[Rfam]
RNA sequence: UUCAAACGGAGUUCAGAAACCAAUGAAAAACGAGGAGCAACCGAAAAUCCACAAGAGUAGGUAAUAA
Numbered sequence: 001u002u003c004a005a006a007c008g009g010a011g012u013u014c015a016g017a018a019a020c021c022a023a024u025g026a027a028a029a030a031c032g033a034g035g036a037g038c039a040a041c042c043g044a045a046a047a048u049c050c051a052c053a054a055g056a057g058u059a060g061g062u063a064a065u066a067a
Base pairs, nucleotide, nucleotide: 008021009020034050035049036048041061042060

Source information
The record is a 67-nucleotide sequence from Flavobacterium alvei, which matches "DUF805 RNA" in Rfam. The family's consensus secondary structure is taken from published work. Its Rfam clan is "DUF805 clan". Taxonomically the source falls in Flavobacterium (Bacteria, Bacteroidota, Flavobacteriia, Flavobacteriales). Rfam classes the family as a cis-regulatory element. It scores 57 bits against the family's covariance model.